[Rfam]
RNA sequence: GAACCCUUGACUCACUCUGAAAUCUACCAUCCUGCCCCGUGGUUUAUUUCUAUUUUUGUGCAAGGGAGAGAACCUAGGCCCAAUACUCACCGCGACAUACUAGCGAUAAAGCUCUUGUGGAUGUAGCGGUCCAUCAUCAUGGCCACAU
Numbered sequence: 001g002a003a004c005c006c007u008u009g010a011c012u013c014a015c016u017c018u019g020a021a022a023u024c025u026a027c028c029a030u031c032c033u034g035c036c037c038c039g040u041g042g043u044u045u046a047u048u049u050c051u052a053u054u055u056u057u058g059u060g061c062a063a064g065g066g067a068g069a070g071a072a073c074c075u076a077g078g079c080c081c082a083a084u085a086c087u088c089a090c091c092g093c094g095a096c097a098u099a100c101u102a103g104c105g106a107u108a109a110a111g112c113u114c115u116u117g118u119g120g121a122u123g124u125a126g127c128g129g130u131c132c133a134u135c136a137u138c139a140u141g142g143c144c145a146c147a148u
Base pairs, nucleotide, nucleotide: 007063008062009061019050020049021048022047023046026043027042028041077144078143079142080141090129091128092127093126095124096123097122100120101119
Source information:
Shown here is a 148-nucleotide sequence from Fusarium fujikuroi, a member of the family "Small nucleolar RNA snR80". Pairs were carried over by alignment from the consensus structure, which was predicted with WAR. On this family, see Schattner et al., Nucleic Acids Res 2004: "Genome-wide searching for pseudouridylation guide snoRNAs: analysis of the Saccharomyces cerevisiae genome". The family has 6 seed sequences and 447 matches in Rfam 15.1. The family is grouped with related families in Rfam's "SNORA28 clan".